The family of this 72-nucleotide sequence from Rubritalea profundi is "tRNA".
Transfer RNA (tRNA) molecules are approximately 80 nucleotides in length.
Pairs were carried over by alignment from the consensus structure, which is taken from published work.
RNA sequence: GCGGGUGUAGCUCAGUGGUAGAGCGCGACCUUGCCAAGGUCGAUGUCGACAGUUCGAAUCUGUUCACCCGCU
Numbered sequence: 001g002c003g004g005g006u007g008u009a010g011c012u013c014a015g016u017g018g019u020a021g022a023g024c025g026c027g028a029c030c031u032u033g034c035c036a037a038g039g040u041c042g043a044u045g046u047c048g049a050c051a052g053u054u055c056g057a058a059u060c061u062g063u064u065c066a067c068c069c070g071c072u
Base pairs, nucleotide, nucleotide: 001071002070003069004068005067006066007065010024011023012022013021026042027041028040029039030038048064049063050062051061052060